[Rfam]
Nucleotides: 184
Stems, first nucleotide, its partner, number of pairs: 018080002021076004028069001031066001035059001037057002040054001042052003103178007111170001128153001131150003
Number, partner (000 for none) and nucleotide at each position: 001000u002000u003000c004000u005000u006000c007000u008000u009000u010000c011000u012000a013000a014000a015000g016000c017000a018080c019079c020000c021076u022075g023074c024073u025000a026000a027000a028069a029000c030000u031066a032000c033000a034000g035059g036000a037057g038056u039000c040054a041000a042052g043051c044050c045000u046000u047000u048000g049000a050044g051043g052042c053000a054040u055000a056038g057037c058000u059035c060000g061000u062000g063000u064000g065000g066031u067000c068000a069028u070000g071000u072000a073024a074023g075022c076021a077000u078000g079019g080018g081000u082000a083000c084000a085000c086000a087000a088000g089000a090000g091000a092000a093000g094000g095000a096000g097000a098000u099000u100000a101000a102000a103178a104177g105176c106175a107174u108173a109172g110000c111170a112000u113000u114000g115000g116000a117000a118000a119000u120000g121000a122000g123000g124000c125000u126000u127000g128153g129000a130000g131150g132149g133148a134000c135000c136000u137000c138000u139000u140000u141000c142000u143000u144000a145000a146000u147000g148133u149132c150131c151000a152000g153128u154000g155000u156000c157000c158000u159000u160000u161000g162000u163000c164000u165000c166000g167000a168000g169000a170111u171000c172109c173108u174107g175106u176105g177104u178103u179000a180000c181000a182000u183000u184000g

Small nucleolar RNA SNORA81: a 184-nucleotide sequence from Echeneis naucrates. It scores 96 bits against the family's covariance model. The literature on the family includes a 2005 paper in Nucleic Acids Res by Gu et al., "A novel experimental approach for systematic identification of box H/ACA snoRNAs from eukaryotes". Lineage of the source: Eukaryota > Eumetazoa > Actinopterygii > Acanthomorphata > Echeneis.